[Rfam]
A member of the RNA family "Lysine riboswitch aptamer" from Intestinibacter bartlettii, 169 nucleotides long.
It scores 106 bits against the family's covariance model.
Pairs were carried over by alignment from the consensus structure, which is taken from published work.
From the family's description: Riboswitches are metabolite binding domains within certain messenger RNAs that serve as precision sensors for their corresponding targets. Allosteric rearrangement of mRNA structure is mediated by ligand binding, and this results in modulation of gene expression. This family includes riboswitches that sense lysine in a number of genes involved in lysine metabolism, including lysC.
RNA sequence: AACCUAAGUAGAGGCGCAAUGAUUAUCAGUAAGUAAUAUGAGCUGGCGAGUGUAGAUGAUUACUGAAAGGAUGAUUUGCCGAAGUUUAUAUCUUGGCGAAGAUAUAUGCUGGGGUCAUGCAGAAAAUGCAUGAGACUGUCACUUAUCUAAGUGGGGGGCUACAGGUUUA
Numbered sequence: 001a002a003c004c005u006a007a008g009u010a011g012a013g014g015c016g017c018a019a020u021g022a023u024u025a026u027c028a029g030u031a032a033g034u035a036a037u038a039u040g041a042g043c044u045g046g047c048g049a050g051u052g053u054a055g056a057u058g059a060u061u062a063c064u065g066a067a068a069g070g071a072u073g074a075u076u077u078g079c080c081g082a083a084g085u086u087u088a089u090a091u092c093u094u095g096g097c098g099a100a101g102a103u104a105u106a107u108g109c110u111g112g113g114g115u116c117a118u119g120c121a122g123a124a125a126a127u128g129c130a131u132g133a134g135a136c137u138g139u140c141a142c143u144u145a146u147c148u149a150a151g152u153g154g155g156g157g158g159c160u161a162c163a164g165g166u167u168u169a
Base pairs, nucleotide, nucleotide: 008162009161010160011159016079017078018077019076024071032064033063034062035061036060037059083110084109085108087106088105089104090103091102092101093100094099111137112136115133116132117131118130119129120128121127139154140153141152142151143150144149